[Rfam]
RNA sequence: CACUCUCCGAAGCCGUUCGCACACACCGCUUGGCAGAGGCGGGGGAACCACUUCUGGUCCUCUUCAGGGAGGGCCUUGGGGUUAAGCAGCCCGGCGCGAGCCGGGAGGCCGGAUACUUCCAAUCCGAACCCGACAGCUCACCUCGUAGGCACUGGGAGAGGCUAC
Numbered sequence: 001c002a003c004u005c006u007c008c009g010a011a012g013c014c015g016u017u018c019g020c021a022c023a024c025a026c027c028g029c030u031u032g033g034c035a036g037a038g039g040c041g042g043g044g045g046a047a048c049c050a051c052u053u054c055u056g057g058u059c060c061u062c063u064u065c066a067g068g069g070a071g072g073g074c075c076u077u078g079g080g081g082u083u084a085a086g087c088a089g090c091c092c093g094g095c096g097c098g099a100g101c102c103g104g105g106a107g108g109c110c111g112g113a114u115a116c117u118u119c120c121a122a123u124c125c126g127a128a129c130c131c132g133a134c135a136g137c138u139c140a141c142c143u144c145g146u147a148g149g150c151a152c153u154g155g156g157a158g159a160g161g162c163u164a165c
Base pairs, nucleotide, nucleotide: 001148005038006037007036039146040145041144042143043142044141049078050077079131080130081129087108090105091104092103093102094101095100111125112124113123114122